The record is a 148-nucleotide RNA sequence from Roseburia sp. AM16-25, which matches "FMN riboswitch aptamer (RFN element)" in Rfam. The base pairs follow the family's consensus structure, which is taken from published work. The source organism's lineage runs through Bacteria, Bacillota, Clostridia, Lachnospiraceae and Roseburia.
RNA sequence: AGGAAUCUUCGGGGCAGGGUGAUAUGAGAGAUCAUAGAUUCCCGACCGACGGUGAUGUUGCUACGGCAACGAGUCCGUGACCUGCAUUUGCAGUUGAAUCGGUGUGAAUCCGAUACCGACAGUAUAGUCUGGAUGAGAGAAGAUAAGU
Numbered sequence: 001a002g003g004a005a006u007c008u009u010c011g012g013g014g015c016a017g018g019g020u021g022a023u024a025u026g027a028g029a030g031a032u033c034a035u036a037g038a039u040u041c042c043c044g045a046c047c048g049a050c051g052g053u054g055a056u057g058u059u060g061c062u063a064c065g066g067c068a069a070c071g072a073g074u075c076c077g078u079g080a081c082c083u084g085c086a087u088u089u090g091c092a093g094u095u096g097a098a099u100c101g102g103u104g105u106g107a108a109u110c111c112g113a114u115a116c117c118g119a120c121a122g123u124a125u126a127g128u129c130u131g132g133a134u135g136a137g138a139g140a141a142g143a144u145a146a147g148u
Stems, first nucleotide, its partner, number of pairs: 005144006017043003045128002047118002049078004073116002082093002098114005120131003